[Rfam]
RNA sequence: CGAGCCCGCUCGGGAGAGUCCCGGCCCCGCCCAACAGGGGGUUGCGGGACGCCGAAGGAGCAACCCCUCCCCGGAAUCUCUCAGGCAUCCGUACCGAGCAGGAUCA
Numbered sequence: 001c002g003a004g005c006c007c008g009c010u011c012g013g014g015a016g017a018g019u020c021c022c023g024g025c026c027c028c029g030c031c032c033a034a035c036a037g038g039g040g041g042u043u044g045c046g047g048g049a050c051g052c053c054g055a056a057g058g059a060g061c062a063a064c065c066c067c068u069c070c071c072c073g074g075a076a077u078c079u080c081u082c083a084g085g086c087a088u089c090c091g092u093a094c095c096g097a098g099c100a101g102g103a104u105c106a
Stems, first nucleotide, its partner, number of pairs: 006101001008099006020048004051086003054082002058080003064074002